[Rfam]
RNA: DUF805b RNA
Organism: Limnovirga soli
RNA sequence: AAGGAGCCAACCGAAAAUCCAUAACAGAGUAGGCG
Dot-bracket structure: ..(((.....[[.....)))...........]]..